[Rfam]
RNA sequence: ACGAUGUUCCGCUGUACAAGAACGUGCAAGAGCAUCUG
Numbered sequence: 001a002c003g004a005u006g007u008u009c010c011g012c013u014g015u016a017c018a019a020g021a022a023c024g025u026g027c028a029a030g031a032g033c034a035u036c037u038g
Base pairs, nucleotide, nucleotide: 003036004035005034006033007032008031009030013028014027015026016025017024